This 270-nucleotide RNA from Mesorhabditis belari belongs to the Rfam family "Metazoan signal recognition particle RNA". The match comes from Rfam's covariance-model search (146 bits). Lineage of the source: Eukaryota > Nematoda > Rhabditoidea > Rhabditidae > Mesorhabditis. For this family Rfam cites "Towards the structure of the mammalian signal recognition particle" (Wild et al., Curr Opin Struct Biol, 2002). It is annotated as a non-coding RNA gene. The family has 91 seed sequences and 383,523 matches in Rfam 15.1. The signal recognition particle (SRP) is a universally conserved ribonucleoprotein. It is involved in the co-translational targeting of proteins to membranes. The eukaryotic SRP consists of a 300-nucleotide 7S RNA and six proteins: SRPs 72, 68, 54, 19, 14, and 9. Archaeal SRP consists of a 7S RNA and homologues of the eukaryotic SRP19 and SRP54 proteins. Pairs were carried over by alignment from the consensus structure, which is taken from published work. The family is grouped with related families in Rfam's "SRP clan".

RNA sequence: CCGGGGCGUCGUGGCAGGCGCUUGUUAGUCAGCUUUGACCGCGGGGUGGAGGAGAGGGAUUGAUCGGGAUCGGCCCGCAGCCGACGACCGGACGUCCAAACCAAGUGGCACGUCGCUAGAGGCUGUUUCCUGGAAAGGCGGCAGUCUCGGGCGGACAAGGAGGGACACAUGGCUCAGGCCCGAAAGGGAGCAGGCAAUAGUCCCGCGCGUCACAGUGGUUGGAUCGCGUCUGGAGGUUGGGGAAUGGUUCCGCCCUCGAAUCCACAUUUU
Numbered sequence: 001c002c003g004g005g006g007c008g009u010c011g012u013g014g015c016a017g018g019c020g021c022u023u024g025u026u027a028g029u030c031a032g033c034u035u036u037g038a039c040c041g042c043g044g045g046g047u048g049g050a051g052g053a054g055a056g057g058g059a060u061u062g063a064u065c066g067g068g069a070u071c072g073g074c075c076c077g078c079a080g081c082c083g084a085c086g087a088c089c090g091g092a093c094g095u096c097c098a099a100a101c102c103a104a105g106u107g108g109c110a111c112g113u114c115g116c117u118a119g120a121g122g123c124u125g126u127u128u129c130c131u132g133g134a135a136a137g138g139c140g141g142c143a144g145u146c147u148c149g150g151g152c153g154g155a156c157a158a159g160g161a162g163g164g165a166c167a168c169a170u171g172g173c174u175c176a177g178g179c180c181c182g183a184a185a186g187g188g189a190g191c192a193g194g195c196a197a198u199a200g201u202c203c204c205g206c207g208c209g210u211c212a213c214a215g216u217g218g219u220u221g222g223a224u225c226g227c228g229u230c231u232g233g234a235g236g237u238u239g240g241g242g243a244a245u246g247g248u249u250c251c252g253c254c255c256u257c258g259a260a261u262c263c264a265c266a267u268u269u270u
Base pairs, nucleotide, nucleotide: 002041003040004023005022006021007020008019009018010017028039029038030037043268044267046265047264048263049262050261054257055256056255057254058253065252066251067250068249069248070247071246072245074242075241076240078239079238080237081236082235088233089232090231091230092229093228094227095226096222097221099220100219101218102217103216105213106212107211108210109209111207112206113205114153115152116151117150119148120147121146122145123144124143125142126141127140129138130137131136162204163203164202165201166200172195173194174193179188180187181186